[Rfam]
Source information:
This 79-nucleotide RNA sequence from Medicago truncatula belongs to the Rfam family "MIR5269 microRNA precursor family". The family has 2 seed sequences and 389 matches in Rfam 15.1. A search with the family's covariance model found it, with a score of 76 bits. Rfam links the family to the GO terms miRNA-mediated post-transcriptional gene silencing and RISC complex.

RNA sequence: UUGGUUUAAAGUAUUGUGGGUCUACACUUUGAAAACUGAACUCACACAAAGUGGUGGGACAUACAUUGAUUUUAUCCAA
Numbered sequence: 001u002u003g004g005u006u007u008a009a010a011g012u013a014u015u016g017u018g019g020g021u022c023u024a025c026a027c028u029u030u031g032a033a034a035a036c037u038g039a040a041c042u043c044a045c046a047c048a049a050a051g052u053g054g055u056g057g058g059a060c061a062u063a064c065a066u067u068g069a070u071u072u073u074a075u076c077c078a079a
Base pairs, nucleotide, nucleotide: 001079002078003077004076006074008072009071010070012068013067015065016064017063018062022057023056024055025053026052027051028050029049030048031047